[Rfam]
The record is a 207-nucleotide RNA sequence from Ruminiclostridium cellobioparum, which matches "glmS glucosamine-6-phosphate activated ribozyme aptamer" in Rfam. The family's RNA type in Rfam is riboswitch. From the family's description: This entry contains a glucosamine-6-phosphate activated ribozyme that is found in the mRNA for GlmS. GlmS is an enzyme that uses fructose-6-phosphate and glutamine to generate glucosamine-6-phosphate. A search with the family's covariance model found it, with a score of 51 bits. The organism belongs to Ruminiclostridium cellobioparum subsp. termitidis, within Bacteria.
RNA sequence: GUAAUUAAAAAGGCGCCAGGACAGAAUUAUCAGAAAUUCCUGAUUUCUGUUGACGAGGUGAAGGAAGCGGUUCACUAAACAGACGUGGACCGUAUCGAAAGAUUCGGCGGAUACCUUCCGGUUGUUACAAUCGACAGAGGCUGAGGAGCAAUAAUUGUUCCGCACAAAACUUGCAGGCGACUGCAGGAACAAAAAGGUCUCACGUAA
Numbered sequence: 001g002u003a004a005u006u007a008a009a010a011a012g013g014c015g016c017c018a019g020g021a022c023a024g025a026a027u028u029a030u031c032a033g034a035a036a037u038u039c040c041u042g043a044u045u046u047c048u049g050u051u052g053a054c055g056a057g058g059u060g061a062a063g064g065a066a067g068c069g070g071u072u073c074a075c076u077a078a079a080c081a082g083a084c085g086u087g088g089a090c091c092g093u094a095u096c097g098a099a100a101g102a103u104u105c106g107g108c109g110g111a112u113a114c115c116u117u118c119c120g121g122u123u124g125u126u127a128c129a130a131u132c133g134a135c136a137g138a139g140g141c142u143g144a145g146g147a148g149c150a151a152u153a154a155u156u157g158u159u160c161c162g163c164a165c166a167a168a169a170c171u172u173g174c175a176g177g178c179g180a181c182u183g184c185a186g187g188a189a190c191a192a193a194a195a196g197g198u199c200u201c202a203c204g205u206a207a
Base pairs, nucleotide, nucleotide: 020051021050022049023048024047025046026045060118061117062116063115064114068106069105070104119157120156121155122154123153124152125151126150161196170187171186172185173184174183175182176181